[Rfam]
RNA: L31-Corynebacteriaceae ribosomal protein leader
Organism: Corynebacterium frankenforstense
RNA sequence: ACUCAGGCACGAUCCGUCCGGGCCGCCGCAGCGCGGUCCCGACCGGCGGAGACGACCUGAAGUUUCAACCCUGAGGGA
Numbered sequence: 001a002c003u004c005a006g007g008c009a010c011g012a013u014c015c016g017u018c019c020g021g022g023c024c025g026c027c028g029c030a031g032c033g034c035g036g037u038c039c040c041g042a043c044c045g046g047c048g049g050a051g052a053c054g055a056c057c058u059g060a061a062g063u064u065u066c067a068a069c070c071c072u073g074a075g076g077g078a
Stems, first nucleotide, its partner, number of pairs: 001063003004059004013050006020044002